[Rfam]
RNA sequence: CCCCGACAAGGGCACCCCCGUUUCGUAAGACGGGUCCGCAAAGUCCAGGAGCUCCCACCCGAGGAGCCGGCCGGAUUGCCGAA
Numbered sequence: 001c002c003c004c005g006a007c008a009a010g011g012g013c014a015c016c017c018c019c020g021u022u023u024c025g026u027a028a029g030a031c032g033g034g035u036c037c038g039c040a041a042a043g044u045c046c047a048g049g050a051g052c053u054c055c056c057a058c059c060c061g062a063g064g065a066g067c068c069g070g071c072c073g074g075a076u077u078g079c080c081g082a083a
Stems, first nucleotide, its partner, number of pairs: 012039002017034004023030002042077004048072002051067005
A member of the RNA family "c-di-GMP-I riboswitch aptamer" from Solirubrobacter ginsenosidimutans, 83 nucleotides long. From the family's description: GEMM was predicted in a large-scale screen for bacterial structured RNA regulatory elements. Genes associated with GEMM are involved in a diverse array of functions, including chemotaxis regulation, signal transduction, secretion and chitin.